[Rfam]
RNA sequence: CUCCCCGAAAUAGCUUUAGGGCUAGCCUUAUGCAAUCGUGUAGUAGGGGUAGAGAUACUGAUUGAGUAUUGGGGCCCACCAGGCUACCGAGCACAAUCAAACUCCGAAUACUACUGCAUUUGACAUAGGAGUCAGACUAUGGGGGAUAAGCUCCGUAGUCGAGAGGGAAACAGCCCAGACCAUUAGUUAAGGUCCCUAAAAUGAGCUAAGUGAAAAAGGAAGUGAAAGUGCUAAGACAGCUAGGAUGUUGGCUUAGAAGCAGCAAUCAUUUAAAAAGUGCGUAAUAGCUUACUAGCCGAGUACUUUUGUGCCGAAAAUUAGCGGGACUAAAGCUCAUUACCGAAACUAUGGAUCCUAAUCUUUUAGGAUGGUAGGGGAGCGUUCUAUGAUAGGUUGAAGCCUUACAAAAAUGAGAGGUGGACGAAAUAGAAGUGAGAAU
Dot-bracket structure: ((((((....(((((....))))).(((((((....((((((((((.....(((....(((.((.(....(((.(......).)).)....).)).)))..)).).....)))))))))..).)))))).)...((((((((((......))))))))))....(((......)))...((((.(((...(((......(((((((...........((..((((((((((.......(((((.(((...((.........))...)))(...)(...((......)).).)))))...)))))))))).))...................))))))))))...)))))))(((((((....)))))))....))))))(.((((((..(.(......(((((.((....)).)))))...).).))))))..).....
Numbered sequence: 001c002u003c004c005c006c007g008a009a010a011u012a013g014c015u016u017u018a019g020g021g022c023u024a025g026c027c028u029u030a031u032g033c034a035a036u037c038g039u040g041u042a043g044u045a046g047g048g049g050u051a052g053a054g055a056u057a058c059u060g061a062u063u064g065a066g067u068a069u070u071g072g073g074g075c076c077c078a079c080c081a082g083g084c085u086a087c088c089g090a091g092c093a094c095a096a097u098c099a100a101a102c103u104c105c106g107a108a109u110a111c112u113a114c115u116g117c118a119u120u121u122g123a124c125a126u127a128g129g130a131g132u133c134a135g136a137c138u139a140u141g142g143g144g145g146a147u148a149a150g151c152u153c154c155g156u157a158g159u160c161g162a163g164a165g166g167g168a169a170a171c172a173g174c175c176c177a178g179a180c181c182a183u184u185a186g187u188u189a190a191g192g193u194c195c196c197u198a199a200a201a202u203g204a205g206c207u208a209a210g211u212g213a214a215a216a217a218g219g220a221a222g223u224g225a226a227a228g229u230g231c232u233a234a235g236a237c238a239g240c241u242a243g244g245a246u247g248u249u250g251g252c253u254u255a256g257a258a259g260c261a262g263c264a265a266u267c268a269u270u271u272a273a274a275a276a277g278u279g280c281g282u283a284a285u286a287g288c289u290u291a292c293u294a295g296c297c298g299a300g301u302a303c304u305u306u307u308g309u310g311c312c313g314a315a316a317a318u319u320a321g322c323g324g325g326a327c328u329a330a331a332g333c334u335c336a337u338u339a340c341c342g343a344a345a346c347u348a349u350g351g352a353u354c355c356u357a358a359u360c361u362u363u364u365a366g367g368a369u370g371g372u373a374g375g376g377g378a379g380c381g382u383u384c385u386a387u388g389a390u391a392g393g394u395u396g397a398a399g400c401c402u403u404a405c406a407a408a409a410a411u412g413a414g415a416g417g418u419g420g421a422c423g424a425a426a427u428a429g430a431a432g433u434g435a436g437a438a439u
Stems, first nucleotide, its partner, number of pairs: 001379006011024005026131001027129006037122001038119009052105001053103002059099003063095002066092001071087001072085002075082001135160010165176003180351004185347003191341003200338007218312002222309010239296005245269003251263002270274001275290001279288002352369007380434001382431006390424001392422001399418005405412002
The record is a 439-nucleotide part of an RNA from uncultured bacterium OMZ60_11L23, which matches "Bacterial large subunit ribosomal RNA" in Rfam. The family's consensus secondary structure is taken from published work. Rfam links the family to the GO terms structural constituent of ribosome and ribosome. The sequence is in the family's curated seed alignment.